This 140-nucleotide RNA sequence belongs to the Rfam family "lysM-TM7 RNA". Rfam classes the family as a cis-regulatory element. Pairs were carried over by alignment from the consensus structure, which is taken from published work.
[Rfam]
Nucleotides: 140
Stems, first nucleotide, its partner, number of pairs: 003110007013101004022077006080093004113134003117130005
Number, partner (000 for none) and nucleotide at each position: 001000g002000c003110c004109u005108g006107c007106c008105a009104a010000a011000a012000u013101c014100g015099u016098c017000g018000c019000u020000a021000c022077g023076g024075a025074u026073a027072u028000a029000g030000c031000a032000a033000a034000a035000c036000u037000a038000a039000u040000g041000u042000a043000g044000a045000a046000u047000a048000u049000a050000a051000u052000u053000a054000a055000u056000c057000a058000a059000u060000u061000a062000g063000g064000u065000c066000g067000a068000c069000a070000a071000c072027a073026u074025a075024u076023c077022c078000u079000g080093u081092u082091c083090u084000g085000u086000u087000g088000c089000g090083a091082g092081a093080a094000g095000a096000a097000a098016g099015a100014c101013g102000a103000u104009u105008u106007g107006g108005u109004a110003g111000a112000g113134g114133u115132g116000u117130c118129a119128g120127u121126g122000g123000u124000a125000a126121c127120a128119c129118u130117g131000g132115u133114g134113c135000a136000a137000g138000g139000a140000g